[Rfam]
RNA sequence: GAGCGUGCUCUGGGGGCGGUGGAAAUCCGCACCGGCGGUGAAAGUCCGCGACCCGGCCACAGCCGGUGGCCGGUUGACCAGGUGCAAUUCCUGGACCGACGGUCAAAGUCCGGAUGAGAAGAUCACGCAG
Numbered sequence: 001g002a003g004c005g006u007g008c009u010c011u012g013g014g015g016g017c018g019g020u021g022g023a024a025a026u027c028c029g030c031a032c033c034g035g036c037g038g039u040g041a042a043a044g045u046c047c048g049c050g051a052c053c054c055g056g057c058c059a060c061a062g063c064c065g066g067u068g069g070c071c072g073g074u075u076g077a078c079c080a081g082g083u084g085c086a087a088u089u090c091c092u093g094g095a096c097c098g099a100c101g102g103u104c105a106a107a108g109u110c111c112g113g114a115u116g117a118g119a120a121g122a123u124c125a126c127g128c129a130g
Base pairs, nucleotide, nucleotide: 003128004127005126006125007124009122010121017029018028019027031109032108033098034097035049036048037047038046044096045095053073054072078094079093080092081091082090100112101111102110

Shown here is a 130-nucleotide RNA from Nocardioides sp. CF8, a member of the family "FMN riboswitch aptamer (RFN element)". About the family: The RFN element is a highly conserved domain that is found frequently in the 5'-untranslated regions of prokaryotic mRNAs that encode for flavin mononucleotide (FMN) biosynthesis and transport proteins. The literature on the family includes a 2002 paper in Nucleic Acids Res by Vitreschak et al., "Regulation of riboflavin biosynthesis and transport genes in bacteria by transcriptional and translational attenuation". It scores 97 bits against the family's covariance model. Rfam links the family to the GO term FMN binding.